[Rfam]
RNA sequence: AUUCGUAAGUACUUCUGGCGCUCAGAUGGAAUGAACCAUCGUGAAGUUUCUGAUAAAAAGCCGCACGCCUGGGCUUAAAAG
Numbered sequence: 001a002u003u004c005g006u007a008a009g010u011a012c013u014u015c016u017g018g019c020g021c022u023c024a025g026a027u028g029g030a031a032u033g034a035a036c037c038a039u040c041g042u043g044a045a046g047u048u049u050c051u052g053a054u055a056a057a058a059a060g061c062c063g064c065a066c067g068c069c070u071g072g073g074c075u076u077a078a079a080a081g
Stems, first nucleotide, its partner, number of pairs: 003053003009049001011047002015043001017069004026039004058076005

Shown here is an 81-nucleotide RNA from Treponema brennaborense, a member of the family "ZMP/ZTP riboswitch aptamer (pfl RNA motif)".